[Rfam]
The family of this 71-nucleotide RNA sequence from Sus scrofa is "Small nucleolar RNA SNORD63". The family's consensus secondary structure was predicted with PFOLD. Rfam links the family to the GO terms RNA processing and nucleolus. Rfam describes the family as follows. snoRNA U63 is found in both humans and mice. A reference for the family is Galardi et al. (2002), "Purified box C/D snoRNPs are able to reproduce site-specific 2'-O-methylation of target RNA in vitro", Mol Cell Biol.
RNA sequence: GUGCAGUGAUGUAUUUUAUCAACACAUCAUUCUGAAAAGACAGGUGUGUGGAAAACAAAGGACUGAGCACA
Numbered sequence: 001g002u003g004c005a006g007u008g009a010u011g012u013a014u015u016u017u018a019u020c021a022a023c024a025c026a027u028c029a030u031u032c033u034g035a036a037a038a039g040a041c042a043g044g045u046g047u048g049u050g051g052a053a054a055a056c057a058a059a060g061g062a063c064u065g066a067g068c069a070c071a
Base pairs, nucleotide, nucleotide: 001070002069003068004067